[Rfam]
RNA sequence: CAUGCUAAUUUAGAACUUUGGAAUAGGGAAAUCCGCGGGGGAUAUUUGAAUCCCCCGCGGAUUUCCCUAUUCCAAAGUUCUAAAUUAGCAUG
Dot-bracket structure: (((((((.(((((((..(.(((((((((.(((((((((((...........)).)))))))).)))))))))).)..))))))).)))))))
The family of this 92-nucleotide RNA sequence from Pelodiscus sinensis is "mir-2005 microRNA precursor family".